[Rfam]
RNA sequence: UCAUGCGGUGAGGACUCCGGAAAAUUCAAGCUCAACAGACCGUAUUGCAGGCCCCGAUUUAGUCGGGGUUUGCAUGGCGACAUUCCCGCUGAGCUGAGCAUUA
Numbered sequence: 001u002c003a004u005g006c007g008g009u010g011a012g013g014a015c016u017c018c019g020g021a022a023a024a025u026u027c028a029a030g031c032u033c034a035a036c037a038g039a040c041c042g043u044a045u046u047g048c049a050g051g052c053c054c055c056g057a058u059u060u061a062g063u064c065g066g067g068g069u070u071u072g073c074a075u076g077g078c079g080a081c082a083u084u085c086c087c088g089c090u091g092a093g094c095u096g097a098g099c100a101u102u103a
Stems, first nucleotide, its partner, number of pairs: 001103001003101004
A member of the RNA family "Small nucleolar RNA Z107/R87" from Spirodela intermedia, 103 nucleotides long. It is annotated as a C/D-box small nucleolar RNA. The match comes from Rfam's covariance-model search (68 bits). The literature on the family includes a 2001 paper in J Mol Biol by Barneche et al., "Identification of 66 box C/D snoRNAs in Arabidopsis thaliana: extensive gene duplications generated multiple isoforms predicting new ribosomal RNA 2'-O-methylation sites". Gene Ontology terms of the family: RNA processing and nucleolus.